[Rfam]
RNA: Group II catalytic intron D1-D4-3
RNA sequence: UGAAGCCGCGAGGCCAGCCUGAAAGAAGCGCGUAGCAAAAGCACGACCGUAGGAACACGAACAAGCAGAGAGGCCGGGUGCGGGCGAUGAGUGUGCUAGGGAACACGAAAUCCAACCGUUACCGAAAGACGCAUCAGGUAGAGCUUGACGGCACGGGCAGAAAGUUUCAGCCC
Numbered sequence: 001u002g003a004a005g006c007c008g009c010g011a012g013g014c015c016a017g018c019c020u021g022a023a024a025g026a027a028g029c030g031c032g033u034a035g036c037a038a039a040a041g042c043a044c045g046a047c048c049g050u051a052g053g054a055a056c057a058c059g060a061a062c063a064a065g066c067a068g069a070g071a072g073g074c075c076g077g078g079u080g081c082g083g084g085c086g087a088u089g090a091g092u093g094u095g096c097u098a099g100g101g102a103a104c105a106c107g108a109a110a111u112c113c114a115a116c117c118g119u120u121a122c123c124g125a126a127a128g129a130c131g132c133a134u135c136a137g138g139u140a141g142a143g144c145u146u147g148a149c150g151g152c153a154c155g156g157g158c159a160g161a162a163a164g165u166u167u168c169a170g171c172c173c
Base pairs, nucleotide, nucleotide: 001016002015005014006013007012028173030171031170035165036164041158042157044155045154047151048150049149050148062147063146064145065144066143073139074138075137077135078134079133080132081131082130086112087111088110091106092105093104094103